[Rfam]
RNA sequence: GGCGUAUUUUGCCCAGGCGGAGCUCGACCGCCGCUUCAAGCGAGAAGGCUUCAUCGACGAUCACCGCCAGGCCUACGGGGUCGAGCCGAUCUGCAAGGUGCUGCCGAUUGCCCCG
Numbered sequence: 001g002g003c004g005u006a007u008u009u010u011g012c013c014c015a016g017g018c019g020g021a022g023c024u025c026g027a028c029c030g031c032c033g034c035u036u037c038a039a040g041c042g043a044g045a046a047g048g049c050u051u052c053a054u055c056g057a058c059g060a061u062c063a064c065c066g067c068c069a070g071g072c073c074u075a076c077g078g079g080g081u082c083g084a085g086c087c088g089a090u091c092u093g094c095a096a097g098g099u100g101c102u103g104c105c106g107a108u109u110g111c112c113c114c115g
Stems, first nucleotide, its partner, number of pairs: 016032005076115005087110002090107002093104003

The record is a 115-nucleotide RNA sequence from Azotobacter chroococcum, which matches "ALIL pseudoknot" in Rfam. A reference for the family is Mazauric et al. (2008), "Apical loop-internal loop RNA pseudoknots: a new type of stimulator of -1 translational frameshifting in bacteria", J Biol Chem. Pairs were carried over by alignment from the consensus structure, which is taken from published work. It is annotated as a cis-regulatory element. NCBI's taxonomy places the organism under Bacteria, Pseudomonadati, Pseudomonadota, Azotobacter, Azotobacter chroococcum.